[Rfam]
Shown here is a 76-nucleotide RNA sequence from Desulfonema magnum, a member of the family "c-di-GMP-I-GGC riboswitch aptamer". A search with the family's covariance model found it, with a score of 70 bits. The family has 40 seed sequences and 1,298 matches in Rfam 15.1.
RNA sequence: CCAGAUAAAGCCAAACCCACCGUGAGAUGGGGACGGAAAGCUUCGGGUCUCAGCAGAGACAGCCGGGUUGCCUGGA
Numbered sequence: 001c002c003a004g005a006u007a008a009a010g011c012c013a014a015a016c017c018c019a020c021c022g023u024g025a026g027a028u029g030g031g032g033a034c035g036g037a038a039a040g041c042u043u044c045g046g047g048u049c050u051c052a053g054c055a056g057a058g059a060c061a062g063c064c065g066g067g068u069u070g071c072c073u074g075g076a
Stems, first nucleotide, its partner, number of pairs: 003073002011036002016031004021026001034062001039069004044065003047060003